[Rfam]
A member of the RNA family "Small nucleolar RNA SNORD11B" from Chrysochloris asiatica, 82 nucleotides long.
Gene Ontology terms of the family: nucleolus and RNA processing.
Its Rfam clan is "SNORD11 clan".
The family's RNA type in Rfam is C/D-box small nucleolar RNA.
It scores 85 bits against the family's covariance model.
The organism belongs to Chrysochloris, within Eukaryota.
For this family Rfam cites "snoSeeker: an advanced computational package for screening of guide and orphan snoRNA genes in the human genome" (Yang et al., Nucleic Acids Res, 2006).
RNA sequence: UGAUGGCAGUGAUGAUUUAUUAUCAUUGUUCACCUGAAAUCUAAAUGAGGGUGUACAGUCACUACCUCAUCUGAUGCCAUUU
Number, nucleotide and partner (000 for none) at each position: 001u000002g081003a080004u079005g078006g077007c076008a000009g000010u000011g000012a000013u000014g000015a000016u000017u000018u000019a000020u000021u000022a000023u000024c000025a000026u000027u000028g000029u000030u000031c000032a000033c000034c000035u000036g000037a000038a000039a000040u000041c000042u000043a000044a000045a000046u000047g000048a000049g000050g000051g000052u000053g000054u000055a000056c000057a000058g000059u000060c000061a000062c000063u000064a000065c000066c000067u000068c000069a000070u000071c000072u000073g000074a000075u000076g007077c006078c005079a004080u003081u002082u000